[Rfam]
RNA sequence: UGAGACAAACGGUAGGUGAGGCUACCCCAGGGAUAUGGAUUGCUGCCGCAAAAUAGUGGAGACACUAUGCGCUGGCUAACAGGCUGUGUCGGAAACAAGGCAUAACCUAACGCAGUUCCAAGGCGGAUUUCCGCCGCGCCCUGGGAGGCUAAAGCUUGAACGGCUUGACGAA
Number, nucleotide and partner (000 for none) at each position: 001u000002g000003a000004g000005a000006c167007a166008a165009a000010c163011g161012g000013u098014a000015g156016g155017u154018g000019a000020g150021g149022c148023u000024a000025c000026c145027c144028c143029a142030g141031g140032g139033a000034u000035a000036u000037g000038g000039a116040u115041u114042g113043c112044u000045g000046c074047c000048g072049c071050a000051a000052a000053a000054u000055a066056g065057u064058g063059g000060a000061g000062a000063c058064a057065c056066u055067a000068u000069g000070c000071g049072c048073u000074g046075g000076c000077u000078a000079a000080c000081a000082g107083g106084c000085u104086g000087u000088g101089u100090c099091g000092g000093a000094a000095a000096c000097a000098a013099g090100g089101c088102a000103u000104a085105a000106c083107c082108u000109a000110a000111c000112g043113c042114a041115g040116u039117u000118c000119c133120a000121a000122g000123g000124c000125g000126g000127a000128u000129u000130u000131c000132c000133g119134c000135c000136g000137c000138g000139c032140c031141c030142u029143g028144g027145g026146a000147g000148g022149c021150u020151a000152a000153a000154g017155c016156u015157u000158g000159a000160a000161c011162g000163g010164c000165u008166u007167g006168a000169c000170g000171a000172a000
The family of this 172-nucleotide RNA sequence from Breznakiella homolactica is "M-box riboswitch aptamer (ykoK leader)". M-box riboswitch, also know as ykoK leader is described as a metaloregulatory RNA that sense divalent metals and function as a genetic control element of genes related to divalent metal transport in bacteria. A reference for the family is Barrick et al. (2004), "New RNA motifs suggest an expanded scope for riboswitches in bacterial genetic control", Proc Natl Acad Sci U S A. The organism belongs to Breznakiella, within Bacteria. It scores 97 bits against the family's covariance model. The pairing is the family consensus, mapped onto this sequence.